[Rfam]
RNA sequence: AAAUAACGCAAGGGGUGCGGCCCCGACCGCGCGCAAUCCGCGCGAAUGCGCAGGUGGCAGAUAAUUGCCACCAGCCGUCGAGGCCGCUGAGAACACACCCUAAGAACCUGAUCUAGUUCGUACUAGCGAAGGGAUGCUCGCACUAUGCACC
Number, nucleotide and partner (000 for none) at each position: 001a000002a000003a000004u000005a000006a000007c000008g137009c136010a135011a101012g100013g099014g098015g000016u095017g087018c086019g085020g084021c083022c000023c000024c000025g000026a000027c000028c000029g000030c000031g000032c000033g000034c000035a000036a000037u000038c000039c000040g000041c000042g000043c000044g000045a000046a000047u000048g000049c000050g000051c000052a000053g000054g000055u000056g000057g000058c000059a000060g000061a000062u000063a000064a000065u000066u000067g000068c000069c000070a000071c000072c000073a000074g000075c000076c000077g000078u000079c000080g000081a000082g000083g021084c020085c019086g018087c017088u000089g000090a000091g000092a000093a000094c000095a016096c000097a000098c014099c013100c012101u011102a000103a000104g000105a000106a000107c132108c131109u130110g000111a000112u000113c126114u125115a124116g123117u000118u000119c000120g000121u000122a000123c116124u115125a114126g113127c000128g000129a000130a109131g108132g107133g000134a000135u010136g009137c008138u000139c000140g000141c000142a000143c000144u000145a000146u000147g000148c000149a000150c000151c000

The record is a 151-nucleotide sequence from Corynebacterium urealyticum, which matches "TPP riboswitch aptamer (THI element)" in Rfam. Taxonomically the source falls in Corynebacterium urealyticum (Bacteria, Bacillati, Actinomycetota, Mycobacteriales). It scores 56 bits against the family's covariance model.